[Rfam]
RNA sequence: AAGCAAGAUUCAGACUACAAUAUAGCUGUUAAGGGCUAUGUCGUCAUUUCCCCUACUCAAAAUAAAGUUGUUUCUUAACUAUACCUCUCUGCUUAUUCCCUCAGCAGCCAGGGAUGCUUGGUCUCAUACAU
Numbered sequence: 001a002a003g004c005a006a007g008a009u010u011c012a013g014a015c016u017a018c019a020a021u022a023u024a025g026c027u028g029u030u031a032a033g034g035g036c037u038a039u040g041u042c043g044u045c046a047u048u049u050c051c052c053c054u055a056c057u058c059a060a061a062a063u064a065a066a067g068u069u070g071u072u073u074c075u076u077a078a079c080u081a082u083a084c085c086u087c088u089c090u091g092c093u094u095a096u097u098c099c100c101u102c103a104g105c106a107g108c109c110a111g112g113g114a115u116g117c118u119u120g121g122u123c124u125c126a127u128a129c130a131u
Stems, first nucleotide, its partner, number of pairs: 003056001005054001007052001017044002020041007084112003089107004